Shown here is a 135-nucleotide RNA from Cyanoderma ruficeps, a member of the family "Small nucleolar RNA SNORA33". Rfam links the family to the GO terms nucleolus and RNA processing. Taxonomically the source falls in Cyanoderma (Eukaryota, Amniota, Sauropsida, Neognathae). From the family's description: ACA33 is a member of the H/ACA class of snoRNA that guide the sites of modification of uridines to pseudouridines.
RNA sequence: AAGCCAGUUUGGUGGGUCUGCUAAACUUAAAAAUGUUUUGCGGAGCUUAUUUCACAAUAACACUGGCAGAGUAAAGCCACAGUACGAGCCUUAAAGACUUUGUGGUCUCUAAGGUCCCAAAAGAUGGCUACAUCU
Numbered sequence: 001a002a003g004c005c006a007g008u009u010u011g012g013u014g015g016g017u018c019u020g021c022u023a024a025a026c027u028u029a030a031a032a033a034u035g036u037u038u039u040g041c042g043g044a045g046c047u048u049a050u051u052u053c054a055c056a057a058u059a060a061c062a063c064u065g066g067c068a069g070a071g072u073a074a075a076g077c078c079a080c081a082g083u084a085c086g087a088g089c090c091u092u093a094a095a096g097a098c099u100u101u102g103u104g105g106u107c108u109c110u111a112a113g114g115u116c117c118c119a120a121a122a123g124a125u126g127g128c129u130a131c132a133u134c135u
Base pairs, nucleotide, nucleotide: 003067004066005065006064007063017044018043019042020041021040076128077127078126079125088115089114090113091112092111093110096107097106098105